[Rfam]
A member of the RNA family "U11 spliceosomal RNA" from Otolemur garnettii, 141 nucleotides long. On this family, see Montzka and Steitz, Proc Natl Acad Sci U S A 1988: "Additional low-abundance human small nuclear ribonucleoproteins: U11, U12, etc". Rfam 15.1 lists 2,595 matches to the family in 1,202 species. The family's consensus secondary structure is taken from published work. It is annotated as a spliceosomal small nuclear RNA.
RNA sequence: AAUCUGGGGUCCUCGACCUCCUCGUGAGUGGUACACGUGGGGCAGCUCAACUGCUCUUUGUGCGGAAUAGACAUCAAGAGAUUUCAGAAGCGUAAGUUUUUGGCACCUGGGCAGCUGGUGAUCGUUGGUCCCAGUGCCUGU
Numbered sequence: 001a002a003u004c005u006g007g008g009g010u011c012c013u014c015g016a017c018c019u020c021c022u023c024g025u026g027a028g029u030g031g032u033a034c035a036c037g038u039g040g041g042g043c044a045g046c047u048c049a050a051c052u053g054c055u056c057u058u059u060g061u062g063c064g065g066a067a068u069a070g071a072c073a074u075c076a077a078g079a080g081a082u083u084u085c086a087g088a089a090g091c092g093u094a095a096g097u098u099u100u101u102g103g104c105a106c107c108u109g110g111g112c113a114g115c116u117g118g119u120g121a122u123c124g125u126u127g128g129u130c131c132c133a134g135u136g137c138c139u140g141u
Stems, first nucleotide, its partner, number of pairs: 001029001034062004039057007064085005109139004114135005120130004